[Rfam]
Nucleotides: 091
Stems, first nucleotide, its partner, number of pairs: 002090006009083020031063012
Number, partner (000 for none) and nucleotide at each position: 001000u002090g003089g004088g005087u006086g007085a008000a009083a010082g011081g012080a013079a014078g015077g016076a017075a018074a019073g020072a021071c022070a023069u024068a025067g026066g027065a028064u029000a030000g031063a032062g033061u034060c035059a036058c037057c038056u039055c040054u041053g042052u043000c044000c045000u046000c047000c048000a049000c050000c051000u052042a053041u054040a055039g056038a057037g058036g059035u060034g061033a062032c063031u064028a065027u066026c067025c068024u069023a070022u071021g072020u073019c074018u075017u076016u077015c078014c079013u080012u081011c082010c083009u084000c085007u086006c087005a088004c089003c090002c091000c